Rfam assigns this 70-nucleotide RNA from Acyrthosiphon pisum to the family "mir-3017 microRNA precursor family". On this family, see Legeai et al., BMC Genomics 2010: "Bioinformatic prediction, deep sequencing of microRNAs and expression analysis during phenotypic plasticity in the pea aphid, Acyrthosiphon pisum".
[Rfam]
RNA sequence: UCGUGUUCUGUGACUGACUGGGCUGACGUCGGACUGGCGGGCGUCCGCUGGUCUGUCACAGAACCUGAGA
Numbered sequence: 001u002c003g004u005g006u007u008c009u010g011u012g013a014c015u016g017a018c019u020g021g022g023c024u025g026a027c028g029u030c031g032g033a034c035u036g037g038c039g040g041g042c043g044u045c046c047g048c049u050g051g052u053c054u055g056u057c058a059c060a061g062a063a064c065c066u067g068a069g070a
Base pairs, nucleotide, nucleotide: 001068002067003066005064006063007062008061009060010059011058012057013056014055016053017052018051021049022048025045026044027043